Rfam assigns this 96-nucleotide RNA from Desulfonatronum sp. SC1 to the family "Bacterial small signal recognition particle RNA". It is annotated as a non-coding RNA gene. From the family's description: The signal recognition particle (SRP) is a universally conserved ribonucleoprotein involved in the co-translational targeting of proteins to membranes.
RNA sequence: GAAAGGAAGCCGGGUGGCAUAAGCGCUGCCAACCCCGUCAGGCCCGAGAGGGAGCAGCGGUAACAGUUGCUUGUGGGUGCCUGGCUUCCUUGAAAG
Numbered sequence: 001g002a003a004a005g006g007a008a009g010c011c012g013g014g015u016g017g018c019a020u021a022a023g024c025g026c027u028g029c030c031a032a033c034c035c036c037g038u039c040a041g042g043c044c045c046g047a048g049a050g051g052g053a054g055c056a057g058c059g060g061u062a063a064c065a066g067u068u069g070c071u072u073g074u075g076g077g078u079g080c081c082u083g084g085c086u087u088c089c090u091u092g093a094a095a096g
Stems, first nucleotide, its partner, number of pairs: 004090011015077001018075005025067004035060004043052003